[Rfam]
RNA sequence: GAGUGUCAUGUUGGCACUCAAAAAGUUUCAGAUUUUAGAACAUUUUGGAUUUUGGAUUUUUGGAUUAAGGAUACUC
Numbered sequence: 001g002a003g004u005g006u007c008a009u010g011u012u013g014g015c016a017c018u019c020a021a022a023a024a025g026u027u028u029c030a031g032a033u034u035u036u037a038g039a040a041c042a043u044u045u046u047g048g049a050u051u052u053u054g055g056a057u058u059u060u061u062g063g064a065u066u067a068a069g070g071a072u073a074c075u076c
Stems, first nucleotide, its partner, number of pairs: 001076007011068004018063007027056006034049006
The family of this 76-nucleotide RNA from Chlorocebus sabaeus is "mir-1290 microRNA precursor family". Pairs were carried over by alignment from the consensus structure, which was predicted with RNAalifold. The organism belongs to Chlorocebus, within Eukaryota.